A member of the RNA family "Archaeal RNase P", 292 nucleotides long. The family is grouped with related families in Rfam's "RNaseP clan". Its family is annotated with ribonuclease P activity, tRNA processing and multimeric ribonuclease P complex in the Gene Ontology. Ribonuclease P (RNase P) is a ubiquitous endoribonuclease, found in archaea, bacteria and eukarya as well as chloroplasts and mitochondria. Its best characterised activity is the generation of mature 5'-ends of tRNAs by cleaving the 5'-leader elements of precursor-tRNAs. Cellular RNase Ps are ribonucleoproteins. RNA from bacterial RNase Ps retains its catalytic activity in the absence of the protein subunit, i.e. it is a ribozyme. A reference for the family is Frank and Pace (1998), "Ribonuclease P: unity and diversity in a tRNA processing ribozyme", Annu Rev Biochem. It is annotated as a ribozyme.
[Rfam]
Nucleotides: 292
Stems, first nucleotide, its partner, number of pairs: 001292003005288005010282002012252006021035005040279003044276005049189004054220002057217002061185005066081005082095005096180002101177003116165003119160001122158005137145002193234004202225005
Number, partner (000 for none) and nucleotide at each position: 001292g002291g003290g004000a005288g006287c007286a008285g009284g010282a011281g012252g013251g014250u015249c016248g017247c018000u019000g020000a021035c022034a023033g024032u025031g026000c027000u028000a029000g030000a031025c032024a033023c034022u035021g036000a037000g038000g039000a040279a041278a042277g043000u044276c045275c046274c047273c048272u049189c050188u051187c052186c053000a054220u055219g056000a057217u058216g059000c060000a061185a062184g063183c064182g065181g066081u067080u068079c069078g070077g071000c072000g073000c074000a075000a076000g077070c078069c079068g080067a081066g082095g083094g084093c085092c086091c087000g088000g089000g090000a091086g092085g093084g094083u095082c096180g097179g098000c099000u100000c101177u102176g103175c104000a105000a106000c107000a108000g109000a110000a111000a112000c113000g114000a115000a116165c117164u118163g119160u120000g121000c122158c123157g124156g125155g126154a127000g128000c129000a130000c131000g132000g133000u134000g135000a136000a137145c138144c139000c140000g141000a142000a143000a144138g145137g146000g147000g148000g149000a150000g151000g152000u153000u154126u155125c156124c157123c158122g159000a160119a161000c162000g163118c164117a165116g166000c167000u168000g169000g170000a171000a172000c173000g174000a175103g176102c177101a178000a179097c180096c181065c182064c183063g184062c185061u186052g187051g188050a189049g190000c191000a192000a193234g194233u195232c196231c197000a198000a199000g200000c201000a202225g203224g204223c205222c206221c207000g208000u209000a210000u211000g212000g213000c214000a215000u216058c217057g218000a219055c220054a221206g222205g223204g224203c225202c226000g227000g228000g229000u230000a231196g232195g233194a234193u235000g236000c237000a238000u239000a240000g241000u242000u243000g244000a245000a246000u247017g248016c249015g250014g251013c252012c253000a254000a255000c256000c257000g258000a259000a260000a261000g262000g263000u264000g265000a266000a267000c268000a269000g270000a271000a272048a273047g274046g275045g276044g277042c278041u279040u280000a281011c282010u283000c284009c285008c286007u287006g288005c289000a290003c291002c292001c